[Rfam]
Nucleotides: 192
Base pairs, nucleotide, nucleotide: 007026009024011022012021013020014019047066048065049064050063051062052061068084069083070082071081072080073079112144113143114142115141118138119137124135125134126133127132147185149184150183151182152181153180155177156176157175158174
Number, partner (000 for none) and nucleotide at each position: 001000a002000u003000c004000g005000c006000u007026u008000c009024u010000c011022a012021g013020c014019c015000u016000u017000u018000u019014g020013g021012c022011u023000a024009a025000a026007a027000u028000c029000a030000a031000a032000u033000g034000u035000a036000g037000u038000a039000u040000c041000u042000g043000u044000u045000c046000u047066u048065a049064u050063c051062a052061g053000u054000u055000u056000a057000a058000u059000a060000u061052c062051u063050g064049a065048u066047a067000u068084g069083u070082c071081c072080c073079u074000u075000a076000u077000c078000u079073a080072g081071g082070g083069a084068c085000a086000a087000u088000a089000u090000a091000u092000u093000a094000a095000a096000u097000u098000g099000a100000u101000u102000u103000u104000u105000g106000g107000a108000a109000c110000a111000g112144g113143g114142a115141g116000a117000u118138g119137a120000a121000a122000u123000a124135g125134g126133a127132g128000c129000u130000u131000g132127u133126u134125u135124c136000a137119u138118c139000c140000a141115c142114u143113c144112c145000a146000c147185g148000c149184c150183a151182u152181c153180a154000a155177c156176c157175u158174g159000a160000u161000a162000c163000u164000g165000c166000a167000g168000u169000a170000u171000c172000u173000c174158c175157a176156g177155g178000a179000a180153u181152g182151g183150u184149g185147c186000a187000c188000c189000a190000a191000a192000a